RNA sequence: GGUAGUAGCAAAUAUUCAAAUGAGAACUUUGAAGACUGAGGUGGAGAAAGGUUCCAUGUGAACAGCAGUUGCACAUGGGUUAGUCGAUCCUAAGAGAUGGGGUAACUCCUUGAGAACGGCGCGGUUCUCCCCGCGCCGCCCAUCGAAAGGGAAUCGGGUCAAAAUUCCCGAACCGGGGACGUGGCAGCUGGCGGCAACGCGAGCGAAUCCGGUUACGUCGGCGGGGGCUCCGGGAAGAGAUGUCUUUUCUUUUUCACAGCUCGAUGGCCCUGAAAUCGGCUUGCACGGAGAUAGGGCCUGCGCAGCUGGUAAAGCACCGCACGUCUCGCGGUGUCCGGACCGCCCCCAACGGCCCUUGAAAAGCCGGAGGAGCGAAUACUGCUCACGCACGGUCGUACUCAUAACCGCAUCAGGUCUCCAAGGUGAACAGCCUCUGGUCAA
Numbered sequence: 001g002g003u004a005g006u007a008g009c010a011a012a013u014a015u016u017c018a019a020a021u022g023a024g025a026a027c028u029u030u031g032a033a034g035a036c037u038g039a040g041g042u043g044g045a046g047a048a049a050g051g052u053u054c055c056a057u058g059u060g061a062a063c064a065g066c067a068g069u070u071g072c073a074c075a076u077g078g079g080u081u082a083g084u085c086g087a088u089c090c091u092a093a094g095a096g097a098u099g100g101g102g103u104a105a106c107u108c109c110u111u112g113a114g115a116a117c118g119g120c121g122c123g124g125u126u127c128u129c130c131c132c133g134c135g136c137c138g139c140c141c142a143u144c145g146a147a148a149g150g151g152a153a154u155c156g157g158g159u160c161a162a163a164a165u166u167c168c169c170g171a172a173c174c175g176g177g178g179a180c181g182u183g184g185c186a187g188c189u190g191g192c193g194g195c196a197a198c199g200c201g202a203g204c205g206a207a208u209c210c211g212g213u214u215a216c217g218u219c220g221g222c223g224g225g226g227g228c229u230c231c232g233g234g235a236a237g238a239g240a241u242g243u244c245u246u247u248u249c250u251u252u253u254u255c256a257c258a259g260c261u262c263g264a265u266g267g268c269c270c271u272g273a274a275a276u277c278g279g280c281u282u283g284c285a286c287g288g289a290g291a292u293a294g295g296g297c298c299u300g301c302g303c304a305g306c307u308g309g310u311a312a313a314g315c316a317c318c319g320c321a322c323g324u325c326u327c328g329c330g331g332u333g334u335c336c337g338g339a340c341c342g343c344c345c346c347c348a349a350c351g352g353c354c355c356u357u358g359a360a361a362a363g364c365c366g367g368a369g370g371a372g373c374g375a376a377u378a379c380u381g382c383u384c385a386c387g388c389a390c391g392g393u394c395g396u397a398c399u400c401a402u403a404a405c406c407g408c409a410u411c412a413g414g415u416c417u418c419c420a421a422g423g424u425g426a427a428c429a430g431c432c433u434c435u436g437g438u439c440a441a
Stems, first nucleotide, its partner, number of pairs: 015033006034439004043419004049399002054078006063071002085395003089150002094144002097111001100109003119136003154171005174391002177388001180387005185381002191200003208368006217353004223347006230338003233253006257308005267297006276288003315333006405414002421433004

This 441-nucleotide part of an RNA from Closterium sp. NIES-67 belongs to the Rfam family "Eukaryotic large subunit ribosomal RNA".